[Rfam]
RNA sequence: CGACCAUCCAGAGCGGCCGAGAGACCUGGCUCAGCGACGCCGCAGCAACCCGCCCUCCUCACCGAGGGUGUGGGUGCUUCCGCCAGGACCGAUGGAGCCGGACGAUGACCG
Numbered sequence: 001c002g003a004c005c006a007u008c009c010a011g012a013g014c015g016g017c018c019g020a021g022a023g024a025c026c027u028g029g030c031u032c033a034g035c036g037a038c039g040c041c042g043c044a045g046c047a048a049c050c051c052g053c054c055c056u057c058c059u060c061a062c063c064g065a066g067g068g069u070g071u072g073g074g075u076g077c078u079u080c081c082g083c084c085a086g087g088a089c090c091g092a093u094g095g096a097g098c099c100g101g102a103c104g105a106u107g108a109c110c111g
Base pairs, nucleotide, nucleotide: 001111002110005107006106007105008104013043014042015041016040017039021032022031023030026086027085028084029083044078045077046076047075049074050073051070052069053068054067055066056065082103090100091099

SAM riboswitch aptamer (S box leader): a 111-nucleotide RNA sequence from Cellulomonas marina. Rfam 15.1 lists 9,625 matches to the family in 4,158 species. Gene Ontology term of the family: regulation of gene expression.